[Rfam]
RNA: A. fumigatus sRNA Afu_309
RNA sequence: CUCUCACCAACGACCUGUGCCAGUUUUCCCGUCCGUCUUUCGGGGCGUGUUCGGUUGAGAGCUGGCAGUUCGUCCGUUCUAUGGAGCCAUCAAAUCCCCAUGAUGUCAAUUUCCGGACGACAGGUUGGAGAGCAAGUCGGCGCGUUGCUAGAGGCCUGAGUUCACCUUCGGGUUUGAGCUCGGUGGAAGGCGCGUGCCAGGCAGACUGAUUCCUGUUCCCUUUUGCUAGGCCGUCGGCCCAUGACGCUUGGGACAAACCCAGUUGGCUACAUAC
Dot-bracket structure: ..........(((((((((((((.(((((((.((((((....))))).)..)))..)))).)))))........(((((..(((.(.(.............).).)))......)))))))))))))............((((((.........((.((((((.((....))...))))))))......)))))).....((.(((((........((((....((..((((...))))......))..))))......))))).)).......
Numbered sequence: 001c002u003c004u005c006a007c008c009a010a011c012g013a014c015c016u017g018u019g020c021c022a023g024u025u026u027u028c029c030c031g032u033c034c035g036u037c038u039u040u041c042g043g044g045g046c047g048u049g050u051u052c053g054g055u056u057g058a059g060a061g062c063u064g065g066c067a068g069u070u071c072g073u074c075c076g077u078u079c080u081a082u083g084g085a086g087c088c089a090u091c092a093a094a095u096c097c098c099c100a101u102g103a104u105g106u107c108a109a110u111u112u113c114c115g116g117a118c119g120a121c122a123g124g125u126u127g128g129a130g131a132g133c134a135a136g137u138c139g140g141c142g143c144g145u146u147g148c149u150a151g152a153g154g155c156c157u158g159a160g161u162u163c164a165c166c167u168u169c170g171g172g173u174u175u176g177a178g179c180u181c182g183g184u185g186g187a188a189g190g191c192g193c194g195u196g197c198c199a200g201g202c203a204g205a206c207u208g209a210u211u212c213c214u215g216u217u218c219c220c221u222u223u224u225g226c227u228a229g230g231c232c233g234u235c236g237g238c239c240c241a242u243g244a245c246g247c248u249u250g251g252g253a254c255a256a257a258c259c260c261a262g263u264u265g266g267c268u269a270c271a272u273a274c
Stems, first nucleotide, its partner, number of pairs: 011127008019066005025060004029054003033049001034047005075119005082108003086104001088102001140195006155183002158181006165172002201267002204264005217253004225247002229239004